Rfam assigns this 390-nucleotide part of an RNA from Thermoplasmatales archaeon SCGC AB-539-N05 to the family "Archaeal large subunit ribosomal RNA".
RNA sequence: AAAAGUAGCAGCAUAGUAAAGUGAGAAUCUUUACCACCGAAGGGGCUAGGGUUCCUCGACGAUGUUCAUCAGUCGAGGGUUAGUCGGUCCUAAGGCAAUCCUUAACUGAGGUUGUCGAAUGGGAAACAGGUUAAUAUUCCUGUACUUUGUAGACAUUUGUCCAAUCUUUGACGCAUUCGGGUAGACUUAGCAGGUUUGUCUAUCUGUCCAAGCGUAUUAAAUUGGGGGAGAACCGUAAUGGUGAGAACCCGAUCAAAGCGUGAUGGAUCCGCCGUUUUUAGGUGGAUUAGGUUUAUCCCAAGUGCCCAUGAAAAUUAGAUUGGGAUGUAGUCUAUGAAUCCGUACCGAGAACUGACACAGGUGCCCCUAGCUGAGAAGGCUAAGGUGUGU
Number, nucleotide and partner (000 for none) at each position: 001a000002a000003a000004a000005g000006u000007a000008g000009c000010a000011g000012c000013a000014u000015a000016g034017u033018a032019a031020a030021g029022u000023g000024a000025g000026a000027a000028u000029c021030u020031u019032u018033a017034c016035c387036a386037c385038c384039g000040a000041a000042g000043g366044g365045g364046c363047u000048a000049g346050g345051g000052u000053u000054c078055c077056u076057c075058g074059a073060c000061g000062a000063u071064g070065u000066u000067c000068a000069u000070c064071a063072g000073u059074c058075g057076a056077g055078g054079g000080u000081u000082a000083g000084u000085c342086g341087g340088u000089c122090c121091u000092a000093a000094g116095g115096c114097a113098a112099u111100c000101c108102u000103u000104a000105a000106c000107u000108g101109a000110g000111g099112u098113u097114g096115u095116c094117g000118a000119a000120u000121g090122g089123g000124a000125a000126a143127c142128a141129g140130g139131u000132u000133a000134a000135u000136a000137u000138u000139c130140c129141u128142g127143u126144a000145c000146u338147u337148u336149g335150u334151a333152g332153a331154c000155a000156u000157u000158u000159g000160u000161c000162c000163a000164a000165u000166c000167u317168u000169u000170g000171a000172c000173g305174c304175a303176u302177u301178c000179g299180g298181g297182u000183a000184g293185a292186c291187u290188u289189a000190g207191c206192a205193g204194g203195u000196u000197u000198g000199u000200c000201u000202a000203u194204c193205u192206g191207u190208c000209c000210a000211a000212g261213c260214g259215u258216a000217u000218u000219a000220a000221a000222u252223u251224g250225g249226g248227g000228g000229a000230g000231a000232a242233c241234c240235g000236u000237a000238a000239u000240g234241g233242u232243g000244a000245g000246a000247a000248c226249c225250c224251g223252a222253u000254c000255a000256a000257a000258g215259c214260g213261u212262g000263a000264u000265g000266g000267a000268u000269c000270c000271g000272c000273c281274g000275u000276u000277u000278u000279u000280a000281g273282g000283u000284g000285g000286a000287u000288u000289a188290g187291g186292u185293u184294u000295a000296u000297c181298c180299c179300a000301a177302g176303u175304g174305c173306c000307c000308a000309u000310g000311a000312a000313a000314a000315u000316u000317a167318g000319a000320u000321u000322g000323g000324g000325a000326u000327g000328u000329a000330g000331u153332c152333u151334a150335u149336g148337a147338a146339u000340c087341c086342g085343u000344a000345c050346c049347g000348a000349g000350a000351a000352c361353u360354g000355a000356c000357a000358c000359a000360g353361g352362u000363g046364c045365c044366c043367c000368u382369a381370g380371c379372u000373g000374a000375g000376a000377a000378g000379g371380c370381u369382a368383a000384g038385g037386u036387g035388u000389g000390u000